[Rfam]
RNA sequence: AUAACGCGAUGAAUCAAGAGGUUGCCGGACUUCCGGGUUAUUCUUGAGGAGCAAGUCAGGAUCUAGAAUCCGACGG
Numbered sequence: 001a002u003a004a005c006g007c008g009a010u011g012a013a014u015c016a017a018g019a020g021g022u023u024g025c026c027g028g029a030c031u032u033c034c035g036g037g038u039u040a041u042u043c044u045u046g047a048g049g050a051g052c053a054a055g056u057c058a059g060g061a062u063c064u065a066g067a068a069u070c071c072g073a074c075g076g
Base pairs, nucleotide, nucleotide: 014047015046016045018043019042020041021039025036026035027034028033055074056073057072059071060070061069062068